The record is a 102-nucleotide RNA sequence from Staphylococcus simiae, which matches "Staphylococcus sRNA71 small RNA" in Rfam.
Taxonomically the source falls in Staphylococcus simiae (Bacteria, Bacillati, Bacillota, Staphylococcaceae).
Rfam's curators put it in the seed alignment.
A reference for the family is Howden et al. (2013), "Analysis of the small RNA transcriptional response in multidrug-resistant Staphylococcus aureus after antimicrobial exposure", Antimicrob Agents Chemother.
sRNA71 is a Bacterial small RNA discovered by RNA-seq analysis of the multiresistant Staphylococcus aureus strain ST239 grown in the presence of antibiotics and found throughout the Staphylococcus genus.

[Rfam]
RNA sequence: AAAUGGUAAGAUAAAGUUGUAGUUGAGAAACAGCUACACAGUCUUUUAUAUUCAUGAACAUAAUACUCCUGGAUGACGUUUCCCUGCGUCAUCCUUUUUUAU
Numbered sequence: 001a002a003a004u005g006g007u008a009a010g011a012u013a014a015a016g017u018u019g020u021a022g023u024u025g026a027g028a029a030a031c032a033g034c035u036a037c038a039c040a041g042u043c044u045u046u047u048a049u050a051u052u053c054a055u056g057a058a059c060a061u062a063a064u065a066c067u068c069c070u071g072g073a074u075g076a077c078g079u080u081u082c083c084c085u086g087c088g089u090c091a092u093c094c095u096u097u098u099u100u101a102u
Stems, first nucleotide, its partner, number of pairs: 003055004009051001011049006018038008071094008
The base pairs follow the family's consensus structure, which was predicted with LocARNA.